RNA sequence: CCCUUCGAGUAGCCAACCAAAUGGACAGGGACGGGGGACCCAAGAAGUUCGGGGUCGCCGGAACCACGAUUCCGAGUGCGACCCCUGGGGUGAAGCCGCACAGCACGCGGCCGGGCAAUCAACCUUCCCGCCCGAACCCGACAGCUCACCUCGCAGGCGUGCAGGAAGGAAUCU
Numbered sequence: 001c002c003c004u005u006c007g008a009g010u011a012g013c014c015a016a017c018c019a020a021a022u023g024g025a026c027a028g029g030g031a032c033g034g035g036g037g038a039c040c041c042a043a044g045a046a047g048u049u050c051g052g053g054g055u056c057g058c059c060g061g062a063a064c065c066a067c068g069a070u071u072c073c074g075a076g077u078g079c080g081a082c083c084c085c086u087g088g089g090g091u092g093a094a095g096c097c098g099c100a101c102a103g104c105a106c107g108c109g110g111c112c113g114g115g116c117a118a119u120c121a122a123c124c125u126u127c128c129c130g131c132c133c134g135a136a137c138c139c140g141a142c143a144g145c146u147c148a149c150c151u152c153g154c155a156g157g158c159g160u161g162c163a164g165g166a167a168g169g170a171a172u173c174u
Base pairs, nucleotide, nucleotide: 001030002029003028032153033152034151035150036149041087042086088139089138090137096110097109098108099107113133114132115131116130
Shown here is a 174-nucleotide RNA sequence from Cryptosporangium phraense, a member of the family "c-di-AMP riboswitch aptamer (ydaO/yuaA leader)". Rfam 15.1 lists 7,607 matches to the family in 2,262 species. Rfam links the family to the GO terms cyclic-di-AMP binding and regulation of gene expression. Pairs were carried over by alignment from the consensus structure. Taxonomically the source falls in Cryptosporangium (Bacteria, Actinomycetota, Actinomycetes, Cryptosporangiales). This family represents a conserved RNA structure found upstream of the ydaO and yuaA genes in Bacillus subtilis and related genes in other bacteria.